[Rfam]
RNA sequence: GGUAGUAGCAAAUACUCCAGCGAGGCCCUGGAGGACUGAUGUGGAGAAGGGUUUCUUGUGAACAGCUGUUGCACAAGAGUCAGUCGAUCCUAAGCCCUAGGAGAAAUCCGAAGCGAUAUGCGCCCGUUAAAUAAUUUUUUUUUAUUAAAUGUUUGGCGCUAUCUGGGCGAAAGGGAAUCCGGUUCCUAUUCCGGAACCCGGCAGCGGAACCGUUCCAAAUCGGGCUCUCAUUUGAGAACUCGUCGGGGUAACCCGACAAGACCCGGAGACGCCGUAGGGAAAUUCGGAGAGAGUUGUCUCUUCUCUAUAAGCGUUCGAGUUCCCUGGAAACCUCUAGCAGGGAGAUAGGGUUUGGAACGCGAAGAGCACCGCAGUUACGGCGGUGUCCGGAUCUUCCCUACGGACCUUGAAAAUCCGGGAGAGGGCCACGAGGAACCCCGCGCCGGCUCGUACCCAUAUCCGCAGCAGGUCUCCAAGGUCAAUAGCCUCUAGUCGA
Numbered sequence: 001g002g003u004a005g006u007a008g009c010a011a012a013u014a015c016u017c018c019a020g021c022g023a024g025g026c027c028c029u030g031g032a033g034g035a036c037u038g039a040u041g042u043g044g045a046g047a048a049g050g051g052u053u054u055c056u057u058g059u060g061a062a063c064a065g066c067u068g069u070u071g072c073a074c075a076a077g078a079g080u081c082a083g084u085c086g087a088u089c090c091u092a093a094g095c096c097c098u099a100g101g102a103g104a105a106a107u108c109c110g111a112a113g114c115g116a117u118a119u120g121c122g123c124c125c126g127u128u129a130a131a132u133a134a135u136u137u138u139u140u141u142u143u144a145u146u147a148a149a150u151g152u153u154u155g156g157c158g159c160u161a162u163c164u165g166g167g168c169g170a171a172a173g174g175g176a177a178u179c180c181g182g183u184u185c186c187u188a189u190u191c192c193g194g195a196a197c198c199c200g201g202c203a204g205c206g207g208a209a210c211c212g213u214u215c216c217a218a219a220u221c222g223g224g225c226u227c228u229c230a231u232u233u234g235a236g237a238a239c240u241c242g243u244c245g246g247g248g249u250a251a252c253c254c255g256a257c258a259a260g261a262c263c264c265g266g267a268g269a270c271g272c273c274g275u276a277g278g279g280a281a282a283u284u285c286g287g288a289g290a291g292a293g294u295u296g297u298c299u300c301u302u303c304u305c306u307a308u309a310a311g312c313g314u315u316c317g318a319g320u321u322c323c324c325u326g327g328a329a330a331c332c333u334c335u336a337g338c339a340g341g342g343a344g345a346u347a348g349g350g351u352u353u354g355g356a357a358c359g360c361g362a363a364g365a366g367c368a369c370c371g372c373a374g375u376u377a378c379g380g381c382g383g384u385g386u387c388c389g390g391a392u393c394u395u396c397c398c399u400a401c402g403g404a405c406c407u408u409g410a411a412a413a414u415c416c417g418g419g420a421g422a423g424g425g426c427c428a429c430g431a432g433g434a435a436c437c438c439c440g441c442g443c444c445g446g447c448u449c450g451u452a453c454c455c456a457u458a459u460c461c462g463c464a465g466c467a468g469g470u471c472u473c474c475a476a477g478g479u480c481a482a483u484a485g486c487c488u489c490u491a492g493u494c495g496a
Stems, first nucleotide, its partner, number of pairs: 015033006034494004043474004049454002054078006063071002085450003089174002094168002096113001098111001100109003120159005178195005198446004234437001244255004262419006272403003276399006284390003288306005311360005322350005331341003367385006460469002476488004
Shown here is a 496-nucleotide part of an RNA from Rhodnius prolixus, a member of the family "Eukaryotic large subunit ribosomal RNA". The organism belongs to Rhodnius, within Eukaryota. A search with the family's covariance model found it, with a score of 2967 bits.